Rfam assigns this 141-nucleotide RNA sequence from Geovibrio thiophilus to the family "FMN riboswitch aptamer (RFN element)". Rfam's curators write: The RFN element is a highly conserved domain that is found frequently in the 5'-untranslated regions of prokaryotic mRNAs that encode for flavin mononucleotide (FMN) biosynthesis and transport proteins. The family's consensus secondary structure is taken from published work.

RNA sequence: CCAUAUUCUCAGGGCGGGGUGAAAUUCCCCACCGGCGGUAAGCCCGACAGGCAAGCCCGCGAGCGCUCCGCAGAUGCGGAGGUCAGCAGAUUCGGUGAGAUUCCGAAGCCGACGGUACAGUCCGGACGAAAGAGGAUUAAA
Number, nucleotide and partner (000 for none) at each position: 001c000002c000003a000004u000005a137006u136007u135008c134009u133010c132011a000012g000013g000014g000015c000016g000017g029018g028019g027020u000021g000022a000023a000024a000025u000026u000027c019028c018029c017030c000031a121032c120033c111034g110035g060036c059037g058038g057039u000040a000041a000042g000043c000044c000045c000046g000047a000048c000049a000050g000051g000052c000053a000054a000055g109056c108057c038058c037059g036060c035061g000062a000063g087064c086065g000066c000067u000068c000069c000070g000071c000072a000073g000074a000075u000076g000077c000078g000079g000080a000081g000082g000083u000084c000085a000086g064087c063088a000089g000090a000091u107092u106093c105094g104095g103096u000097g000098a000099g000100a000101u000102u000103c095104c094105g093106a092107a091108g056109c055110c034111g033112a000113c124114g123115g122116u000117a000118c000119a000120g032121u031122c115123c114124g113125g000126a000127c000128g000129a000130a000131a000132g010133a009134g008135g007136a006137u005138u000139a000140a000141a000

Lineage of the source: Bacteria > Pseudomonadati > Deferribacterota > Geovibrionaceae > Geovibrio. A search with the family's covariance model found it, with a score of 120 bits.